[Rfam]
RNA sequence: CUCUUAUCACGAGUGGCGGAGGGACUGGCCUGAUGAAGCCCGGCAACCAUCAGACAAAUAGGUUUUGUUUGACAAGGUGCCAAUUCCUGCGAAGCGUAUAGCUUUGACAGAUAAGAG
Numbered sequence: 001c002u003c004u005u006a007u008c009a010c011g012a013g014u015g016g017c018g019g020a021g022g023g024a025c026u027g028g029c030c031u032g033a034u035g036a037a038g039c040c041c042g043g044c045a046a047c048c049a050u051c052a053g054a055c056a057a058a059u060a061g062g063u064u065u066u067g068u069u070u071g072a073c074a075a076g077g078u079g080c081c082a083a084u085u086c087c088u089g090c091g092a093a094g095c096g097u098a099u100a101g102c103u104u105u106g107a108c109a110g111a112u113a114a115g116a117g
Stems, first nucleotide, its partner, number of pairs: 001117008013041001015040003021031003025089001027087002042081004047077002050072008085109001090106006
This 117-nucleotide RNA from Virgibacillus sp. MSP4-1 belongs to the Rfam family "SAM riboswitch aptamer (S box leader)". Lineage of the source: Bacteria > Bacillati > Bacilli > Caryophanales > Virgibacillus.